[Rfam]
MIR5084 microRNA precursor family: a 119-nucleotide sequence from Triticum aestivum. Its family is annotated with RISC complex and miRNA-mediated post-transcriptional gene silencing in the Gene Ontology.
RNA sequence: AAAGGGGUUAGGAUCCUCUGCAGUACCGUACGAUGAUGUACAGUCGAUGCCAUGUGGGACCUGGCCCCACAUGGCAUCGACACUACAGCAUCAUACGGUACUGCAGAGGAUCUCAACCC
Numbered sequence: 001a002a003a004g005g006g007g008u009u010a011g012g013a014u015c016c017u018c019u020g021c022a023g024u025a026c027c028g029u030a031c032g033a034u035g036a037u038g039u040a041c042a043g044u045c046g047a048u049g050c051c052a053u054g055u056g057g058g059a060c061c062u063g064g065c066c067c068c069a070c071a072u073g074g075c076a077u078c079g080a081c082a083c084u085a086c087a088g089c090a091u092c093a094u095a096c097g098g099u100a101c102u103g104c105a106g107a108g109g110a111u112c113u114c115a116a117c118c119c
Stems, first nucleotide, its partner, number of pairs: 005119005011113020032092004037087004051073008060064001